[Rfam]
RNA sequence: UCGAAUGUUUUCUAGGGUUCCGCGACAGUUGUGUCGGUCUGGUCCGAGAGAAAACUCACAGCCUGUUGGUUGUGUCACGGAGGGACAAAAGCCUGGGAGAU
Number, nucleotide and partner (000 for none) at each position: 001u000002c000003g000004a000005a000006u000007g055008u054009u053010u052011u051012c050013u000014a000015g045016g044017g000018u000019u000020c042021c041022g039023c036024g035025a034026c033027a032028g000029u000030u000031g000032u027033g026034u025035c024036g023037g000038u000039c022040u000041g021042g020043u000044c016045c015046g000047a000048g000049a000050g012051a011052a010053a009054a008055c007056u000057c074058a073059c072060a071061g070062c069063c068064u000065g000066u000067u000068g063069g062070u061071u060072g059073u058074g057075u000076c096077a000078c099079g000080g000081a000082g094083g093084g092085a000086c000087a000088a000089a000090a000091g000092c084093c083094u082095g000096g076097g000098a000099g078100a000101u000
About this RNA:
Guanidine-I riboswitch aptamer: a 101-nucleotide sequence from Paenibacillus xylanivorans. The pairing is the family consensus, mapped onto this sequence. Its family is annotated with regulation of gene expression in the Gene Ontology. About the family: This family represents a conserved RNA structure found upstream of the ykkC and yxkD genes in Bacillus subtilis and related genes in other bacteria. The function of this family is unclear although it has been suggested that it may function to switch on efflux pumps and detoxification systems in response to harmful environmental molecules.